RNA sequence: UGCCACCGCCCUCACACUCGGAUCGUCCGGCACGUUCCUGCCGGUGGAAGGGAAGGACC
Dot-bracket structure: .........(((..((..........((((((......))))))))..)))........

The family of this 59-nucleotide RNA sequence from Pseudonocardia thermophila is "msiK RNA". The organism belongs to Pseudonocardia, within Bacteria.